A member of the RNA family "Guanidine-II riboswitch aptamer (mini-ykkC)" from Pseudosulfitobacter pseudonitzschiae, 47 nucleotides long. Simpler in structure and has fewer highly conserved nucleotide positions than the ykkC-yxkD leader. Despite this each of its two stem-loop structures directly bind free guanidine. Therefore, mini-ykkC RNA motif represents a distinct class of guanidine-sensing RNAs. Its crystal structure was also determined.
[Rfam]
RNA sequence: CAGCGAGGACGACCUCCCCCAUCGGGAAAAUAUCCGGGACGACCCGG
Numbered sequence: 001c002a003g004c005g006a007g008g009a010c011g012a013c014c015u016c017c018c019c020c021a022u023c024g025g026g027a028a029a030a031u032a033u034c035c036g037g038g039a040c041g042a043c044c045c046g047g
Base pairs, nucleotide, nucleotide: 003018005016006015007014008013034047035046036045037044038043
The base pairs follow the family's consensus structure, which is taken from published work. A search with the family's covariance model found it, with a score of 39 bits. The source organism's lineage runs through Bacteria, Pseudomonadati, Rhodobacterales, Roseobacteraceae and Pseudosulfitobacter.